[Rfam]
RNA: M-box riboswitch aptamer (ykoK leader)
Organism: Pusillibacter faecalis
RNA sequence: AAUCACGUCCGGUAGGUAAGGCUACCACAGGGAUAUGGAUCGCUGCCGCGAAAUGAUGGAGACAUCAUCAGAUGGUUUGAACAGGCGAUAUCGAACACGAAGGUAUCAUCUAAUGCGAUUUCACCGCCUUGUGAGGCUAAAGCUUGAACGGUUGCGCACGUCUUC
Dot-bracket structure: ....((((.((.[.(((..(((...(((((((......(((((.((((.....((.((....)).)).....)))).......((.(..(((........])))..).))....))))).......)))))))..)))...)))....)......).))))....
Numbered sequence: 001a002a003u004c005a006c007g008u009c010c011g012g013u014a015g016g017u018a019a020g021g022c023u024a025c026c027a028c029a030g031g032g033a034u035a036u037g038g039a040u041c042g043c044u045g046c047c048g049c050g051a052a053a054u055g056a057u058g059g060a061g062a063c064a065u066c067a068u069c070a071g072a073u074g075g076u077u078u079g080a081a082c083a084g085g086c087g088a089u090a091u092c093g094a095a096c097a098c099g100a101a102g103g104u105a106u107c108a109u110c111u112a113a114u115g116c117g118a119u120u121u122c123a124c125c126g127c128c129u130u131g132u133g134a135g136g137c138u139a140a141a142g143c144u145u146g147a148a149c150g151g152u153u154g155c156g157c158a159c160g161u162c163u164u165c
Stems, first nucleotide, its partner, number of pairs: 005161004010156001011149001013101001015144003020138003026133007039119005045076004054067002057064002084110002087107001090104003